The record is a 331-nucleotide RNA from Eptatretus burgeri, which matches "Nuclear RNase P" in Rfam.
The family's consensus secondary structure is taken from published work.
A search with the family's covariance model found it, with a score of 132 bits.
By type it is a ribozyme.
RNA sequence: UGGGCGGGAAUGCUCACGAAUGGGGUCACAUACAGGCACGUUGGUUGCUUCUGAUUGGCUGCCCUAGGGAAGGUCUGAGACGAGAGCCAAAUCGCCGCCCCAACAGGGUGUCCCUCUAAGUGGGGAGUGAUGCCACGAGAAACAUGUGGCCCGGCGCGGCCACGCACAGGAAGCGGUCCCAGGUGGUCUCGCGAUGCCCCGUCAGACCCGCCGCUGAUGCGGCCGCGCCGCGUUUGGGAGAGGCUCACGGCUGGCUGAGCUGAGCUCGAUGCGUGAGGUGGUGCAUGGUGCAAGCAGCAUCAUAACCAAAUUCAGACUACUCUCCGGCCCA
Numbered sequence: 001u002g003g004g005c006g007g008g009a010a011u012g013c014u015c016a017c018g019a020a021u022g023g024g025g026u027c028a029c030a031u032a033c034a035g036g037c038a039c040g041u042u043g044g045u046u047g048c049u050u051c052u053g054a055u056u057g058g059c060u061g062c063c064c065u066a067g068g069g070a071a072g073g074u075c076u077g078a079g080a081c082g083a084g085a086g087c088c089a090a091a092u093c094g095c096c097g098c099c100c101c102a103a104c105a106g107g108g109u110g111u112c113c114c115u116c117u118a119a120g121u122g123g124g125g126a127g128u129g130a131u132g133c134c135a136c137g138a139g140a141a142a143c144a145u146g147u148g149g150c151c152c153g154g155c156g157c158g159g160c161c162a163c164g165c166a167c168a169g170g171a172a173g174c175g176g177u178c179c180c181a182g183g184u185g186g187u188c189u190c191g192c193g194a195u196g197c198c199c200c201g202u203c204a205g206a207c208c209c210g211c212c213g214c215u216g217a218u219g220c221g222g223c224c225g226c227g228c229c230g231c232g233u234u235u236g237g238g239a240g241a242g243g244c245u246c247a248c249g250g251c252u253g254g255c256u257g258a259g260c261u262g263a264g265c266u267c268g269a270u271g272c273g274u275g276a277g278g279u280g281g282u283g284c285a286u287g288g289u290g291c292a293a294g295c296a297g298c299a300u301c302a303u304a305a306c307c308a309a310a311u312u313c314a315g316a317c318u319a320c321u322c323u324c325c326g327g328c329c330c331a
Base pairs, nucleotide, nucleotide: 001331002330003329004328007325008324009323013277014276015275016274017273018272021066022065023064024063025062034050035049036048037047038046075315076314077313078312079311085252086251087250088249096110097109098108099107100106111126112125113124114123115122127248128247129246130245132244133243134242278303279302280301281300282299283298284297